[Rfam]
RNA sequence: AGGGCUGUAUCUUUAAGAACGGCACCAAUUGUAGUGAACUAUGCAAAAAAAGCUAAGCAGCCUGGAUUCUGCCAUGAACCAGGACAGCACA
Number, nucleotide and partner (000 for none) at each position: 001a000002g026003g025004g023005c022006u021007g020008u019009a000010u018011c017012u000013u000014u000015a000016a000017g011018a010019a008020c007021g006022g005023c004024a000025c003026c002027a000028a000029u000030u000031g000032u000033a000034g000035u000036g000037a000038a000039c000040u000041a000042u000043g000044c000045a000046a000047a000048a000049a000050a000051a000052g000053c000054u000055a000056a000057g000058c087059a000060g085061c083062c082063u081064g080065g079066a000067u078068u077069c076070u000071g000072c000073c000074a000075u000076g069077a068078a067079c065080c064081a063082g062083g061084a000085c060086a000087g058088c000089a000090c000091a000
The record is a 91-nucleotide RNA sequence from Geomicrobium halophilum, which matches "pan motif" in Rfam. The family's RNA type in Rfam is cis-regulatory element. NCBI's taxonomy places the organism under Bacteria, Bacillati, Bacilli, Caryophanales, Geomicrobium.